[Rfam]
RNA sequence: UCCCUACAUUAAGACUUGGGUCGACGCCCAUGCCAACCUGCCAGACCGGGCAAGGUGGAUUGCGAAAGCAGAUGUGGCUUCCAGAAGGAAGCAACCAAACGGAACGCG
Numbered sequence: 001u002c003c004c005u006a007c008a009u010u011a012a013g014a015c016u017u018g019g020g021u022c023g024a025c026g027c028c029c030a031u032g033c034c035a036a037c038c039u040g041c042c043a044g045a046c047c048g049g050g051c052a053a054g055g056u057g058g059a060u061u062g063c064g065a066a067a068g069c070a071g072a073u074g075u076g077g078c079u080u081c082c083a084g085a086a087g088g089a090a091g092c093a094a095c096c097a098a099a100c101g102g103a104a105c106g107c108g
Stems, first nucleotide, its partner, number of pairs: 006075005017030005033058002037055003040051003046102003077092006

Rfam assigns this 108-nucleotide RNA from Noviherbaspirillum pedocola to the family "SAM-I/IV (S-adenosyl methionine) riboswitch aptamer".